[Rfam]
RNA: MIR845_1 microRNA precursor family
RNA sequence: GUUUCCAUCACGUCGAUUGGUGUCAGAGCCACGCUAAUUCUAGCUUUUGCGCGGCUCUGAUACCAAUUGAUGCAACGGAAAC
Dot-bracket structure: ((((((.(..((((((((((((((((((((.(((..............))).))))))))))))))))))))..).))))))